[Rfam]
RNA: A. fumigatus sRNA Afu_254
Organism: Aspergillus nidulans
Nucleotides: 154
Base pairs, nucleotide, nucleotide: 082106083105084104089099090098091097110135111134112133119126120125
Number, partner (000 for none) and nucleotide at each position: 001000u002000u003000c004000c005000u006000c007000a008000u009000c010000c011000a012000a013000u014000c015000a016000a017000u018000c019000a020000a021000c022000c023000a024000a025000c026000c027000a028000a029000c030000c031000a032000a033000c034000c035000a036000u037000c038000u039000u040000c041000c042000a043000c044000c045000g046000g047000u048000u049000u050000a051000u052000c053000u054000a055000c056000c057000a058000a059000c060000a061000a062000a063000c064000a065000c066000c067000a068000u069000c070000a071000a072000c073000a074000u075000g076000u077000c078000u079000c080000c081000c082106u083105g084104c085000a086000c087000c088000u089099g090098c091097a092000a093000c094000u095000g096000c097091u098090g099089c100000u101000c102000c103000g104084g105083c106082g107000a108000g109000u110135g111134c112133a113000a114000c115000u116000c117000c118000u119126g120125c121000u122000c123000u124000u125120g126119c127000a128000g129000c130000u131000c132000u133112u134111g135110c136000a137000a138000g139000g140000u141000c142000u143000g144000u145000c146000c147000a148000c149000c150000u151000g152000u153000c154000u